Rfam assigns this 175-nucleotide RNA from Solimicrobium silvestre to the family "Manganese Mn2+ riboswitch aptamer (yybP-ykoY)". Lineage of the source: Bacteria > Pseudomonadati > Betaproteobacteria > Burkholderiales > Solimicrobium. The base pairs follow the family's consensus structure.
[Rfam]
RNA sequence: CGGGCUGUCAUUGGGGAGUAGCCGCCCUUCAUCUAGAAAGGGACUUACAUCAACAGACUUGUCGCCCGCGACAUGGUGUAAGUGAUUCCAAGAAUUUGGCGAGACCUUUGACCGUAUUGCUUCCGCAUGGCCGGGGUAGCAUGCGGUCAUCGCGUUUCUACCGGUCAAGGAGUCC
Numbered sequence: 001c002g003g004g005c006u007g008u009c010a011u012u013g014g015g016g017a018g019u020a021g022c023c024g025c026c027c028u029u030c031a032u033c034u035a036g037a038a039a040g041g042g043a044c045u046u047a048c049a050u051c052a053a054c055a056g057a058c059u060u061g062u063c064g065c066c067c068g069c070g071a072c073a074u075g076g077u078g079u080a081a082g083u084g085a086u087u088c089c090a091a092g093a094a095u096u097u098g099g100c101g102a103g104a105c106c107u108u109u110g111a112c113c114g115u116a117u118u119g120c121u122u123c124c125g126c127a128u129g130g131c132c133g134g135g136g137u138a139g140c141a142u143g144c145g146g147u148c149a150u151c152g153c154g155u156u157u158c159u160a161c162c163g164g165u166c167a168a169g170g171a172g173u174c175c
Base pairs, nucleotide, nucleotide: 026041027040028039043083044082045081046080047079048078049077050076051075052074060073061072062071063070064069084174085173086172087171088170089169